[Rfam]
RNA sequence: AAAAUAAAGCAGAAGCUAUCCGCUUCUCACCUUACACGGCUUUUAGUGUUACUAAGGUUAUAUUACGGAAACGUACAUGCGGAUAGCCUUGUGCUAUCCGUUCUUUUUUUGUGGA
Numbered sequence: 001a002a003a004a005u006a007a008a009g010c011a012g013a014a015g016c017u018a019u020c021c022g023c024u025u026c027u028c029a030c031c032u033u034a035c036a037c038g039g040c041u042u043u044u045a046g047u048g049u050u051a052c053u054a055a056g057g058u059u060a061u062a063u064u065a066c067g068g069a070a071a072c073g074u075a076c077a078u079g080c081g082g083a084u085a086g087c088c089u090u091g092u093g094c095u096a097u098c099c100g101u102u103c104u105u106u107u108u109u110u111g112u113g114g115a
Base pairs, nucleotide, nucleotide: 011027012026013025014024015023016022029058030057031056039049040048079101080100081099082098083097084096085095086094087093

Annotation:
Shown here is a 115-nucleotide sequence from Megasphaera cerevisiae, a member of the family "Ribosomal protein L20 leader". Rfam's curators write: This family is a putative r-protein leader autoregulatory structure found in B. subtilis and other low-GC Gram-positive bacteria. It is located in the 5' untranslated regions of mRNAs encoding initiation factor 3 followed by ribosomal proteins L35 and L20 (infC-rpmI-rplT). The match comes from Rfam's covariance-model search (60 bits). The family's consensus secondary structure was predicted with CMfinder. By type it is a cis-regulatory leader.